[Rfam]
Nucleotides: 192
Stems, first nucleotide, its partner, number of pairs: 006187006017085009033070002036067004089119008099109002120147002124143004129138002150176008
Number, partner (000 for none) and nucleotide at each position: 001000c002000g003000a004000u005000g006187g007186g008185g009184u010183a011182g012000a013000g014000g015000u016000c017085g018084c019083g020082g021081c022080u023079a024078u025077u026000a027000a028000g029000a030000g031000u032000a033070g034069g035000a036067c037066g038065g039064a040000c041000g042000a043000g044000a045000a046000a047000c048000a049000a050000a051000a052000g053000a054000u055000u056000u057000c058000g059000a060000u061000g062000a063000c064039u065038c066037c067036g068000c069034u070033u071000g072000a073000a074000a075000g076000g077025a078024a079023u080022a081021g082020c083019u084018g085017c086000c087000g088000a089119a090118g091117c092116c093115g094114a095113u096112a097000c098000u099109u100108c101000u102000c103000u104000u105000u106000u107000g108100g109099a110000u111000a112096u113095a114094u115093c116092g117091g118090c119089u120147g121146g122000g123000g124143c125142u126141g127140u128000c129138u130137c131000c132000g133000a134000a135000u136000a137130g138129g139000a140127a141126c142125a143124g144000a145000a146121c147120u148000g149000u150176c151175a152174c153173g154172u155171u156170u157169a158000u159000u160000g161000a162000u163000u164000c165000c166000a167000a168000c169157u170156a171155a172154a173153c174152g175151u176150g177000u178000u179000g180000a181000g182011c183010u184009a185008u186007c187006u188000u189000c190000g191000g192000a
This 192-nucleotide RNA from Heyndrickxia sporothermodurans belongs to the Rfam family "Lysine riboswitch aptamer". Taxonomically the source falls in Heyndrickxia (Bacteria, Bacillati, Bacillota, Bacilli). The match comes from Rfam's covariance-model search (118 bits). Riboswitches are metabolite binding domains within certain messenger RNAs that serve as precision sensors for their corresponding targets.